Shown here is an 80-nucleotide RNA from Alligator sinensis, a member of the family "ctgf/hcs24 CAESAR". The family has 9 seed sequences and 518 matches in Rfam 15.1. The family's RNA type in Rfam is cis-regulatory element. The 3' UTR of human connective tissue growth factor/hypertrophic chondrocyte specific 24 (ctgf/hcs24) mRNA has been shown to repress ctgf gene expression. For this family Rfam cites "Involvement of cis-acting repressive element(s) in the 3'-untranslated region of human connective tissue growth factor gene" (Kubota et al., FEBS Lett, 1999). Taxonomically the source falls in Alligator (Eukaryota, Teleostomi, Amniota, Archosauria). It scores 61 bits against the family's covariance model.
RNA sequence: AUGGAGACAUGGCAUAAAGCCAGAAGGAGACAAGCUAGAGACUUUCAACUUGAACUGUUUUUUUUUUUGCAUCUCAUUUU
Dot-bracket structure: ...((((..((((.....))))(.((((((................................)))))).).)))).....